Annotation:
This 143-nucleotide sequence from Pteropus vampyrus belongs to the Rfam family "Small nucleolar RNA SNORA79". From the family's description: ACA65 (SNORA79) is a member of the H/ACA class of snoRNAs that guide the sites of modification of uridines to pseudouridines. This snoRNA was identified by computational screening and its expression in mouse experimentally verified by Northern blot and primer extension analysis. The family's consensus secondary structure was predicted with RNAalifold. The family's RNA type in Rfam is H/ACA-box small nucleolar RNA. NCBI's taxonomy places the organism under Eukaryota, Gnathostomata, Teleostomi, Pteropodinae, Pteropus.
RNA sequence: UGAUGGCUGUUCCUCUCACUACUUGGAGCCUUAGGUAGUGGGCUUUUAGACCAUCAUAUAUCUAAGCUGACUUGUCUCACAGUACCAUGGGGAUGGGUUGGCUGUCCAUUACUGCCUUCUUAUUUUUGCCGAGUCAAACAAUU
Numbered sequence: 001u002g003a004u005g006g007c008u009g010u011u012c013c014u015c016u017c018a019c020u021a022c023u024u025g026g027a028g029c030c031u032u033a034g035g036u037a038g039u040g041g042g043c044u045u046u047u048a049g050a051c052c053a054u055c056a057u058a059u060a061u062c063u064a065a066g067c068u069g070a071c072u073u074g075u076c077u078c079a080c081a082g083u084a085c086c087a088u089g090g091g092g093a094u095g096g097g098u099u100g101g102c103u104g105u106c107c108a109u110u111a112c113u114g115c116c117u118u119c120u121u122a123u124u125u126u127u128g129c130c131g132a133g134u135c136a137a138a139c140a141a142u143u
Stems, first nucleotide, its partner, number of pairs: 001056006008049001015042004020037004069135006081118001082115003091107005